Background:
Rfam assigns this 76-nucleotide RNA from Albula goreensis to the family "Small nucleolar RNA SNORD66". Its family is annotated with RNA processing and nucleolus in the Gene Ontology. NCBI's taxonomy places the organism under Eukaryota, Metazoa, Deuterostomia, Albulinae, Albula. snoRNA HBII-142 is part of the C/D family of snoRNAs. It is the human orthologue of the mouse MBII-142 snoRNA and is predicted to guide 2'O-ribose methylation of small 18S rRNA at residue C1272. The literature on the family includes a 2001 paper in EMBO J by Huttenhofer et al., "RNomics: an experimental approach that identifies 201 candidates for novel, small, non-messenger RNAs in mouse". Pairs were carried over by alignment from the consensus structure, which was predicted with RNAalifold.

RNA sequence: CUUCUGUGAUGAUUUUCUAUUUGUGCCACGUGUCUGGGCCACUGACUAACAGUGAUGGGAAUGAGGAACUGAGGAG
Numbered sequence: 001c002u003u004c005u006g007u008g009a010u011g012a013u014u015u016u017c018u019a020u021u022u023g024u025g026c027c028a029c030g031u032g033u034c035u036g037g038g039c040c041a042c043u044g045a046c047u048a049a050c051a052g053u054g055a056u057g058g059g060a061a062u063g064a065g066g067a068a069c070u071g072a073g074g075a076g
Stems, first nucleotide, its partner, number of pairs: 001076004